[Rfam]
RNA sequence: CGAGUAAGCCAGACAAUCGCUGCUGCUUUUGCAGGAGAGGAAAGUCCGAGCUCCAUAGGGCAGGGUGCCAGGUAACUCCUGGUGGAGGCAACUCUAAGGAAAGUGCAACAGAGAUAUACCGCUAAAGGUAGCUUUUAGCUAUACUAGUAAGGGUGGAAAGGCGAGGUAAGAGCUCACCAGCACAUUGGCAACUAUGUGGCUAUGUAAACCCCAUCUGGAGCAAGAUCGAAUAGGAAGACUUAAUGGAAUUGCCCGUUCCGUCUUCGGGUGUAUCGCUUGAGCCUAUAUGGUGACAAUAGGCCUAGAUAGAUGAUUGUCUAACACAGAACUCGGCUUACAGGGUUGCUCGUCCA
Numbered sequence: 001c002g003a004g005u006a007a008g009c010c011a012g013a014c015a016a017u018c019g020c021u022g023c024u025g026c027u028u029u030u031g032c033a034g035g036a037g038a039g040g041a042a043a044g045u046c047c048g049a050g051c052u053c054c055a056u057a058g059g060g061c062a063g064g065g066u067g068c069c070a071g072g073u074a075a076c077u078c079c080u081g082g083u084g085g086a087g088g089c090a091a092c093u094c095u096a097a098g099g100a101a102a103g104u105g106c107a108a109c110a111g112a113g114a115u116a117u118a119c120c121g122c123u124a125a126a127g128g129u130a131g132c133u134u135u136u137a138g139c140u141a142u143a144c145u146a147g148u149a150a151g152g153g154u155g156g157a158a159a160g161g162c163g164a165g166g167u168a169a170g171a172g173c174u175c176a177c178c179a180g181c182a183c184a185u186u187g188g189c190a191a192c193u194a195u196g197u198g199g200c201u202a203u204g205u206a207a208a209c210c211c212c213a214u215c216u217g218g219a220g221c222a223a224g225a226u227c228g229a230a231u232a233g234g235a236a237g238a239c240u241u242a243a244u245g246g247a248a249u250u251g252c253c254c255g256u257u258c259c260g261u262c263u264u265c266g267g268g269u270g271u272a273u274c275g276c277u278u279g280a281g282c283c284u285a286u287a288u289g290g291u292g293a294c295a296a297u298a299g300g301c302c303u304a305g306a307u308a309g310a311u312g313a314u315u316g317u318c319u320a321a322c323a324c325a326g327a328a329c330u331c332g333g334c335u336u337a338c339a340g341g342g343u344u345g346c347u348c349g350u351c352c353a
Base pairs, nucleotide, nucleotide: 001349002348003347004346005345006344007343009341010340012318013317014316015315016314017313018312020037021036023034024033025032026031042336043335044334046333047332048331049330050329051220052219053218054217058254059253060252061251063216064215065214066213067212068082069081070080071079072078083097084095085094086093087092098211099210103209104208105205106204107203119152120151121148122147123146124145127142160178161177163175164174165173180200181198182197183196184195185194187192224274225273226272234265235264236263237262238261239260245259246258247257248256249255281301282300283299284298285297286296288295289294
Dot-bracket structure: (((((((.((.(((((((.((.((((....)))).))....[[[.[[[[[((((...[[[[.((((((((((.....)))))(((((....)))).)((...(((((...........((((((..(..............)..))))..)).......((.(((.......))).)).((((((.(....).))))).)..)))..)))))))))))))...(((.......((((((.....(((((.]]]])))))))))))......)))......((((((.((....))))))))..........)))))))..........]]]]]]]]...)).)))))))....
The record is a 353-nucleotide sequence from Clostridium pasteurianum, which matches "Bacterial RNase P class A" in Rfam. Clan: RNaseP clan. Pairs were carried over by alignment from the consensus structure, which is taken from published work. The match comes from Rfam's covariance-model search (291 bits). By type it is a ribozyme.